Shown here is a 126-nucleotide RNA sequence from Salvia splendens, a member of the family "Small nucleolar RNA snoR111". The literature on the family includes a 2002 paper in Curr Biol by Marker et al., "Experimental RNomics: identification of 140 candidates for small non-messenger RNAs in the plant Arabidopsis thaliana". By type it is an H/ACA-box small nucleolar RNA. The family's consensus secondary structure was predicted with WAR. It scores 57 bits against the family's covariance model.
RNA sequence: UAAUCUAUGAGCGGGACGGUGUUUUACUUCCGUCUCGUGGGUGAGCAAGAGGUAUAACAAUGGUGGUGAGAUAUCGUUUCAUUCGUCAUUUAGAUCCGUUGACGAUUCGAUUGUUAUUUGCUGCAA
Numbered sequence: 001u002a003a004u005c006u007a008u009g010a011g012c013g014g015g016a017c018g019g020u021g022u023u024u025u026a027c028u029u030c031c032g033u034c035u036c037g038u039g040g041g042u043g044a045g046c047a048a049g050a051g052g053u054a055u056a057a058c059a060a061u062g063g064u065g066g067u068g069a070g071a072u073a074u075c076g077u078u079u080c081a082u083u084c085g086u087c088a089u090u091u092a093g094a095u096c097c098g099u100u101g102a103c104g105a106u107u108c109g110a111u112u113g114u115u116a117u118u119u120g121c122u123g124c125a126a
Stems, first nucleotide, its partner, number of pairs: 006039006013031004065122006073111004083105006090098001